[Rfam]
RNA sequence: UUGGCAUAAUGAGGAAGAUAAUUGUUCUUUGGUCUAUUUGAUGCUAAUAUCCUCCUGCUCAUUCUGA
Numbered sequence: 001u002u003g004g005c006a007u008a009a010u011g012a013g014g015a016a017g018a019u020a021a022u023u024g025u026u027c028u029u030u031g032g033u034c035u036a037u038u039u040g041a042u043g044c045u046a047a048u049a050u051c052c053u054c055c056u057g058c059u060c061a062u063u064c065u066g067a
Stems, first nucleotide, its partner, number of pairs: 006062002009059001025046001029040001
RNA: Small nucleolar RNA Z105
Organism: Aegilops tauschii